[Rfam]
RNA sequence: AUUCUGAAGCCAUGUACCGCUGACGUUGUCAGCAACAUGCCCGAGGUAGUCUGGAUUUCAUGACUACGAUGCGUUUUUCGCAUUAAUCCAACCCCCAGUUCGCAAAGCAUUCGGAAGCGCGAACGGUUGAUCAGUUUAUCUGGUUGAUGGAUGC
Numbered sequence: 001a002u003u004c005u006g007a008a009g010c011c012a013u014g015u016a017c018c019g020c021u022g023a024c025g026u027u028g029u030c031a032g033c034a035a036c037a038u039g040c041c042c043g044a045g046g047u048a049g050u051c052u053g054g055a056u057u058u059c060a061u062g063a064c065u066a067c068g069a070u071g072c073g074u075u076u077u078u079c080g081c082a083u084u085a086a087u088c089c090a091a092c093c094c095c096c097a098g099u100u101c102g103c104a105a106a107g108c109a110u111u112c113g114g115a116a117g118c119g120c121g122a123a124c125g126g127u128u129g130a131u132c133a134g135u136u137u138a139u140c141u142g143g144u145u146g147a148u149g150g151a152u153g154c
Stems, first nucleotide, its partner, number of pairs: 011039004019033006046067006053088002056085001068084006119154003126148003130144005